[Rfam]
RNA sequence: CGCUAGCCAAGGGUUUUCGGUCCACUUUGCUGCCCAUAAACAUGUUUAUGGGCAGCAAAGUGGACCGAAAACCCUUGGCUAGCG
Number, nucleotide and partner (000 for none) at each position: 001c084002g083003c082004u081005a000006g079007c000008c077009a076010a000011g000012g073013g072014u071015u070016u069017u068018c000019g065020g000021u064022c063023c062024a061025c000026u060027u059028u058029g000030c000031u000032g053033c052034c051035c050036a049037u048038a047039a046040a000041c000042a000043u000044g000045u000046u039047u038048a037049u036050g035051g034052g033053c032054a000055g000056c000057a000058a028059a027060g026061u024062g023063g022064a021065c019066c000067g000068a017069a016070a015071a014072c013073c012074c000075u000076u009077g008078g000079c006080u000081a004082g003083c002084g001
RNA: mir-571 microRNA precursor family